[Rfam]
RNA sequence: GAAUUUCGUCAAAGCCGACCUCCUCCCCGGCAAUGACGAAUACGGUCGAUCCUCACCUCCUCCCGGGGAUUGACCAUCAAAACGAUGCCCGCCGGAUCCUCCCCCGGCGGGCAUUGUUG
Numbered sequence: 001g002a003a004u005u006u007c008g009u010c011a012a013a014g015c016c017g018a019c020c021u022c023c024u025c026c027c028c029g030g031c032a033a034u035g036a037c038g039a040a041u042a043c044g045g046u047c048g049a050u051c052c053u054c055a056c057c058u059c060c061u062c063c064c065g066g067g068g069a070u071u072g073a074c075c076a077u078c079a080a081a082a083c084g085a086u087g088c089c090c091g092c093c094g095g096a097u098c099c100u101c102c103c104c105c106g107g108c109g110g111g112c113a114u115u116g117u118u119g
Stems, first nucleotide, its partner, number of pairs: 006039003010035002014031003044075010085114011
RNA: Alphaproteobacterial ar14
Organism: Mesorhizobium sp. Root554